[Rfam]
RNA sequence: ACCAAAUCCUAUUCACAACGGAUCGUCCGGCACGUACCUGCCGGUGAAGGAGAUUUAA
Numbered sequence: 001a002c003c004a005a006a007u008c009c010u011a012u013u014c015a016c017a018a019c020g021g022a023u024c025g026u027c028c029g030g031c032a033c034g035u036a037c038c039u040g041c042c043g044g045u046g047a048a049g050g051a052g053a054u055u056u057a058a
Stems, first nucleotide, its partner, number of pairs: 009050002012048004027044006
Rfam assigns this 58-nucleotide sequence from Cryobacterium psychrophilum to the family "msiK RNA". NCBI's taxonomy places the organism under Bacteria, Bacillati, Actinomycetota, Micrococcales, Cryobacterium.